[Rfam]
RNA sequence: CGGUCCUUUAAAGGAAGUCCCGUGAGGCUUCAAAGGUUCGUAUCGAUGAGCGUGUAUCGUUGUACACGUCUACCUCUUUGCGUACCUAGGGACGCAAAGGGGUUUUUUUU
Numbered sequence: 001c002g003g004u005c006c007u008u009u010a011a012a013g014g015a016a017g018u019c020c021c022g023u024g025a026g027g028c029u030u031c032a033a034a035g036g037u038u039c040g041u042a043u044c045g046a047u048g049a050g051c052g053u054g055u056a057u058c059g060u061u062g063u064a065c066a067c068g069u070c071u072a073c074c075u076c077u078u079u080g081c082g083u084a085c086c087u088a089g090g091g092a093c094g095c096a097a098a099g100g101g102g103u104u105u106u107u108u109u110u
Stems, first nucleotide, its partner, number of pairs: 003038001005036005014031006051068007072103012
Dot-bracket structure: ..(.(((((....((((((......))))))))))).)............(((((((....)))))))...((((((((((((........)))))))))))).......
Description: This 110-nucleotide RNA from Halobacillus sp. BAB-2008 belongs to the Rfam family "PyrR binding site". The source organism's lineage runs through Bacteria, Bacillati, Caryophanales, Bacillaceae and Halobacillus. By type it is a cis-regulatory element.